[Rfam]
RNA sequence: GGGGGGCAUCCAAAAGCUGAGAUGUUUCCCGAUACAAUCUUCCUACAGAAAACUCUGUAGUUUCCUGCAUGUGGUACUUGAGAAAGUUCCGCAAGUCUCAGAUAUCCAGAAAUAUUA
Numbered sequence: 001g002g003g004g005g006g007c008a009u010c011c012a013a014a015a016g017c018u019g020a021g022a023u024g025u026u027u028c029c030c031g032a033u034a035c036a037a038u039c040u041u042c043c044u045a046c047a048g049a050a051a052a053c054u055c056u057g058u059a060g061u062u063u064c065c066u067g068c069a070u071g072u073g074g075u076a077c078u079u080g081a082g083a084a085a086g087u088u089c090c091g092c093a094a095g096u097c098u099c100a101g102a103u104a105u106c107c108a109g110a111a112a113u114a115u116u117a
Stems, first nucleotide, its partner, number of pairs: 001030003005026006054110003067096002070093005076087003
RNA: Small nucleolar RNA snoR104